[Rfam]
RNA sequence: GAGCCAAAGGGCGAUGGGGUUCGCCGUAUAACCGCCUCUGGGCUGAUGACUCCUGAAUGACC
Number, nucleotide and partner (000 for none) at each position: 001g000002a000003g000004c000005c000006a000007a000008a000009g000010g025011g024012c023013g022014a000015u000016g053017g052018g051019g050020u049021u048022c013023g012024c011025c010026g000027u000028a000029u000030a000031a000032c000033c000034g043035c042036c041037u000038c000039u000040g000041g036042g035043c034044u000045g000046a000047u000048g021049a020050c019051u018052c017053c016054u000055g000056a000057a000058u000059g000060a000061c000062c000
Background: Shown here is a 62-nucleotide RNA from Acidiferrobacter sp. SPIII_3, a member of the family "Fluoride riboswitch aptamer (crcB RNA motif)". A search with the family's covariance model found it, with a score of 53 bits. The source organism's lineage runs through Bacteria, Pseudomonadota, Acidiferrobacterales, Acidiferrobacteraceae and Acidiferrobacter.